[Rfam]
RNA: RT-18 RNA
RNA sequence: GAGCCCUUGCUCAAAAUAGAGUCGCAACUGGAUUGGACUAGUAAGCCCAUUAUGGUUUGAAAAUCCGAUAGACAAAAAUAAG
Numbered sequence: 001g002a003g004c005c006c007u008u009g010c011u012c013a014a015a016a017u018a019g020a021g022u023c024g025c026a027a028c029u030g031g032a033u034u035g036g037a038c039u040a041g042u043a044a045g046c047c048c049a050u051u052a053u054g055g056u057u058u059g060a061a062a063a064u065c066c067g068a069u070a071g072a073c074a075a076a077a078a079u080a081a082g
Stems, first nucleotide, its partner, number of pairs: 001012004021073003032069006044058002046055002